Source information: The family of this 216-nucleotide RNA is "IS605-orfB-I RNA". Rfam classes the family as a small RNA. Pairs were carried over by alignment from the consensus structure, which is taken from published work.
[Rfam]
RNA sequence: ACCUUAUAUAGAUGUAGCGACGCAAGACAGUUGCGCAUUUCCCUGUAAGGUAGUGUUUCAACAGAAGUGUAAACAACAAGUCUUAUUGCGUGGCUAUGAGUCGAAAUAAGAUGAGUUUAUAUGGAAUAGGUUAACCGUAAGACCUUGAAUUGAGAAAUUCUAAAAUUGAUCUAGAUUUCGAAUUUCCGAAAUUUCGUAAUUUCUAGUUACGGUCAU
Numbered sequence: 001a002c003c004u005u006a007u008a009u010a011g012a013u014g015u016a017g018c019g020a021c022g023c024a025a026g027a028c029a030g031u032u033g034c035g036c037a038u039u040u041c042c043c044u045g046u047a048a049g050g051u052a053g054u055g056u057u058u059c060a061a062c063a064g065a066a067g068u069g070u071a072a073a074c075a076a077c078a079a080g081u082c083u084u085a086u087u088g089c090g091u092g093g094c095u096a097u098g099a100g101u102c103g104a105a106a107u108a109a110g111a112u113g114a115g116u117u118u119a120u121a122u123g124g125a126a127u128a129g130g131u132u133a134a135c136c137g138u139a140a141g142a143c144c145u146u147g148a149a150u151u152g153a154g155a156a157a158u159u160c161u162a163a164a165a166u167u168g169a170u171c172u173a174g175a176u177u178u179c180g181a182a183u184u185u186c187c188g189a190a191a192u193u194u195c196g197u198a199a200u201u202u203c204u205a206g207u208u209a210c211g212g213u214c215a216u
Stems, first nucleotide, its partner, number of pairs: 001051008010040006017034005022028001067122008081111007092102002095099001128145005134213006140166001147160005171206005